The family of this 62-nucleotide RNA sequence from Diospyros virginiana is "Plastid-psbA-4 3UTR RNA".
The sequence is in the family's curated seed alignment.
About the family: Plastid psbA-4 is a non-coding RNA (ncRNA) present in plastids.

[Rfam]
Nucleotides: 062
Stems, first nucleotide, its partner, number of pairs: 007059004012054007025042006
Number, partner (000 for none) and nucleotide at each position: 001000g002000a003000a004000a005000g006000u007059a008058a009057g010056g011000c012054a013053g014052c015051a016050a017049u018048a019000a020000c021000u022000a023000a024000c025042c026041u027040c028039u029038u030037g031000u032000u033000c034000u035000a036000u037030c038029a039028a040027g041026a042025g043000g044000g045000c046000a047000u048018u049017a050016u051015u052014g053013c054012u055000c056010c057009u058008u059007u060000a061000c062000u

A reference for the family is Richter et al. (2023), "Retrograde signaling in plants: A critical review focusing on the GUN pathway and beyond", Plant Commun. The family is grouped with related families in Rfam's "Plastid-psbA 3UTR RNA clan". Pairs were carried over by alignment from the consensus structure, which was predicted with LocARNA. NCBI's taxonomy places the organism under Eukaryota, Viridiplantae, Streptophytina, Gunneridae, Diospyros.